[Rfam]
The record is a 101-nucleotide sequence from Sodalis glossinidius, which matches "Gammaprotebacteria rimP leader" in Rfam. The literature on the family includes a 2010 paper in Genome Biol by Naville and Gautheret, "Premature terminator analysis sheds light on a hidden world of bacterial transcriptional attenuation".

RNA sequence: AGCCGCCUGCGGUUUACAGGGUCCAGUCACUUAACGCCCCGAUUUUUUCGGGGUUUUUUGUUAUUUCACACAGUAAUACUGGGCUAAUUAGCCCUUUUUUU
Numbered sequence: 001a002g003c004c005g006c007c008u009g010c011g012g013u014u015u016a017c018a019g020g021g022u023c024c025a026g027u028c029a030c031u032u033a034a035c036g037c038c039c040c041g042a043u044u045u046u047u048u049c050g051g052g053g054u055u056u057u058u059u060g061u062u063a064u065u066u067c068a069c070a071c072a073g074u075a076a077u078a079c080u081g082g083g084c085u086a087a088u089u090a091g092c093c094c095u096u097u098u099u100u101u
Stems, first nucleotide, its partner, number of pairs: 033057002036054006081094004
By type it is a cis-regulatory leader. The organism belongs to Sodalis glossinidius, within Bacteria. The sequence is in the family's curated seed alignment.